[Rfam]
RNA sequence: AAGCAUUCUGAAGACCUGUUCGCAAGGCUACCUACUGAGAACCUAGUUUCUCGCGCCUCCCGCCUUGGGGAAAGUCCCCGGACACAUGCCAGAGACGGCCUUGUGUGAUUGCAAUGAGACAGUUUGCCGAUACCAUUAGAGCUAAGAAGUUCUCCGGAACUGAGCUUGGUACUAGCGAAUUGCUUUCGUCAGUGUGCUAGUAACGCAGGUGGUGUGAAAUCAUGAACACAACGGGGCUCAUUCUCAGAAUGCA
Numbered sequence: 001a002a003g004c005a006u007u008c009u010g011a012a013g014a015c016c017u018g019u020u021c022g023c024a025a026g027g028c029u030a031c032c033u034a035c036u037g038a039g040a041a042c043c044u045a046g047u048u049u050c051u052c053g054c055g056c057c058u059c060c061c062g063c064c065u066u067g068g069g070g071a072a073a074g075u076c077c078c079c080g081g082a083c084a085c086a087u088g089c090c091a092g093a094g095a096c097g098g099c100c101u102u103g104u105g106u107g108a109u110u111g112c113a114a115u116g117a118g119a120c121a122g123u124u125u126g127c128c129g130a131u132a133c134c135a136u137u138a139g140a141g142c143u144a145a146g147a148a149g150u151u152c153u154c155c156g157g158a159a160c161u162g163a164g165c166u167u168g169g170u171a172c173u174a175g176c177g178a179a180u181u182g183c184u185u186u187c188g189u190c191a192g193u194g195u196g197c198u199a200g201u202a203a204c205g206c207a208g209g210u211g212g213u214g215u216g217a218a219a220u221c222a223u224g225a226a227c228a229c230a231a232c233g234g235g236g237c238u239c240a241u242u243c244u245c246a247g248a249a250u251g252c253a
Base pairs, nucleotide, nucleotide: 003252004251005250006249007248008247009246010245011244014210015209016208017207018206019205023067024066025065026064027063028062037052038051039050040049041048073238074237076236077235078234079233088099089098090097101114102113103112104111116183118181123179124178125177126176127175131171132170133169139167140166141165142164149160150159151158152157212223213222214221
Overview: This 253-nucleotide RNA from Anguilla anguilla belongs to the Rfam family "RNase MRP". RNase MRP is an enzymatically active ribonucleoprotein with two distinct roles in eukaryotes. In mitochondria it plays a direct role in the initiation of mitochondrial DNA replication. The organism belongs to Anguilla, within Eukaryota. The match comes from Rfam's covariance-model search (135 bits). The family's consensus secondary structure is taken from published work. It is annotated as a ribozyme.